[Rfam]
RNA: Small nucleolar RNA SNORD58
Nucleotides: 080
Base pairs, nucleotide, nucleotide: 001079002078003077004076
Number, partner (000 for none) and nucleotide at each position: 001079c002078u003077g004076c005000a006000a007000u008000g009000a010000u011000g012000g013000c014000a015000u016000u017000u018000c019000u020000u021000a022000g023000g024000a025000c026000a027000u028000c029000c030000u031000u032000a033000g034000a035000u036000u037000a038000a039000c040000u041000a042000u043000g044000a045000a046000a047000a048000c049000a050000a051000c052000u053000u054000c055000c056000u057000c058000u059000g060000c061000a062000c063000c064000c065000a066000a067000u068000u069000u070000c071000u072000c073000u074000g075000a076004g077003c078002a079001g080000c